[Rfam]
RNA sequence: UCCGCCGCGAGACGGAGUCUGAAGGAAGCCGGCGGAACCUUGCGGCCCGACGAACAGGAACCCCAUACGAGGCUGUCUGUGCUUGGAUGAGUCUGCACAACAAGACAAAGUCCUUGCCGCUGAAGGGUACAGGCAGCAAAUGGGGCGGGUAGAUGGAGGGAAAGACAGCGCU
Dot-bracket structure: ((((.(....).))))...........(.((.......(((.(((((((...........((((((.....(((.(((((((..((((..((((........))))...)))).............))))))).)))..)))))))))))...)).))).........)).)
Record summary:
The record is a 172-nucleotide RNA sequence from Calditerricola satsumensis, which matches "Group II catalytic intron D1-D4-3" in Rfam. Rfam links the family to the GO term Group II intron splicing. A reference for the family is Lehmann and Schmidt (2003), "Group II introns: structure and catalytic versatility of large natural ribozymes", Crit Rev Biochem Mol Biol. Lineage of the source: Bacteria > Bacillati > Bacillota > Bacillaceae > Calditerricola.